Notes
A member of the RNA family "mir-8799 microRNA precursor family" from Canis lupus, 87 nucleotides long. A search with the family's covariance model found it, with a score of 75 bits. Clan: mir-8791 microRNA precursor clan. Pairs were carried over by alignment from the consensus structure, which was predicted with RNAalifold.
RNA sequence: CGGGGGAGGCCGGAUCCUGGGCUGAGUCCCGGCGUCCUGUGCUCCGGAGCCUGCGCUGUUGGAUUCGCUCCCGCCCCGCAGCCCCCU
Numbered sequence: 001c002g003g004g005g006g007a008g009g010c011c012g013g014a015u016c017c018u019g020g021g022c023u024g025a026g027u028c029c030c031g032g033c034g035u036c037c038u039g040u041g042c043u044c045c046g047g048a049g050c051c052u053g054c055g056c057u058g059u060u061g062g063a064u065u066c067g068c069u070c071c072c073g074c075c076c077c078g079c080a081g082c083c084c085c086c087u
Stems, first nucleotide, its partner, number of pairs: 002086005009079002012075002017073001019071003023067007030058006039051001041050003